RNA sequence: UUUAAACCGUUGAUGCGGAGAUAAAGGUAAUCAUGCUUCUACAGAGAGUCUACGUUGCUGAGAGUUAGGCGAAAAACAAGUUAUCAAAUGGACCGCGGAGGGGGUAGUCAAAGAAAGCUUGCUUUUGAGUAUACUACCACGUGAUGGCUUACGUAAGUAGUCGAAGAUAUGUUGGUAUCUUGCUGAGGGUAUGGAGUUUUCCAUGAAUCAAGGUGGCACCGCGGAUUAGUCGAUUCGUCCUUGAC
Numbered sequence: 001u002u003u004a005a006a007c008c009g010u011u012g013a014u015g016c017g018g019a020g021a022u023a024a025a026g027g028u029a030a031u032c033a034u035g036c037u038u039c040u041a042c043a044g045a046g047a048g049u050c051u052a053c054g055u056u057g058c059u060g061a062g063a064g065u066u067a068g069g070c071g072a073a074a075a076a077c078a079a080g081u082u083a084u085c086a087a088a089u090g091g092a093c094c095g096c097g098g099a100g101g102g103g104g105u106a107g108u109c110a111a112a113g114a115a116a117g118c119u120u121g122c123u124u125u126u127g128a129g130u131a132u133a134c135u136a137c138c139a140c141g142u143g144a145u146g147g148c149u150u151a152c153g154u155a156a157g158u159a160g161u162c163g164a165a166g167a168u169a170u171g172u173u174g175g176u177a178u179c180u181u182g183c184u185g186a187g188g189g190u191a192u193g194g195a196g197u198u199u200u201c202c203a204u205g206a207a208u209c210a211a212g213g214u215g216g217c218a219c220c221g222c223g224g225a226u227u228a229g230u231c232g233a234u235u236c237g238u239c240c241u242u243g244a245c
Stems, first nucleotide, its partner, number of pairs: 007101002015096004026085006037073003048070005103138006140153003190205006210242004221238005

The record is a 245-nucleotide sequence from Enterococcus cecorum, which matches "T-box leader" in Rfam. The organism belongs to Enterococcus cecorum, within Bacteria. Pairs were carried over by alignment from the consensus structure, which is taken from published work.